Record summary
This 101-nucleotide sequence from Parambassis ranga belongs to the Rfam family "mir-214 microRNA precursor family".

RNA sequence: CUAAAGGAGUUGUGCUGCGUCUGCCUAUCUACACUUGCUGUGCAGAAUAUCAUCCAACCUGUACAGCAGGCACAGACAGGCAGAUACACAUCAGCCAGCCA
Numbered sequence: 001c002u003a004a005a006g007g008a009g010u011u012g013u014g015c016u017g018c019g020u021c022u023g024c025c026u027a028u029c030u031a032c033a034c035u036u037g038c039u040g041u042g043c044a045g046a047a048u049a050u051c052a053u054c055c056a057a058c059c060u061g062u063a064c065a066g067c068a069g070g071c072a073c074a075g076a077c078a079g080g081c082a083g084a085u086a087c088a089c090a091u092c093a094g095c096c097a098g099c100c101a
Stems, first nucleotide, its partner, number of pairs: 017087001019085001022082005028076003034070001036068006043061003
Description
Rfam links the family to the GO terms miRNA-mediated post-transcriptional gene silencing and RISC complex. The family's consensus secondary structure was predicted with RNAalifold. For this family Rfam cites "Identification of novel chicken microRNAs and analysis of their genomic organization" (Shao et al., Gene, 2008).